[Rfam]
RNA: c-di-GMP-I riboswitch aptamer
Nucleotides: 087
Stems, first nucleotide, its partner, number of pairs: 012037002017032006040081004046077003049072003056066002059063001
Number, partner (000 for none) and nucleotide at each position: 001000a002000u003000g004000u005000u006000a007000c008000a009000u010000a011000g012037g013036c014000a015000c016000a017032c018031c019030a020029a021028u022027g023000g024000a025000a026000a027022c028021a029020u030019u031018g032017g033000g034000c035000c036013g037012c038000a039000a040081a041080g042079c043078c044000a045000u046077u047076g048075g049072a050071u051070c052000u053000a054000a055000g056066g057065g058000a059063c060000u061000c062000u063059g064000a065057c066056c067000u068000a069000u070051g071050a072049u073000a074000g075048c076047c077046a078043g079042g080041c081040u082000g083000c084000c085000g086000c087000a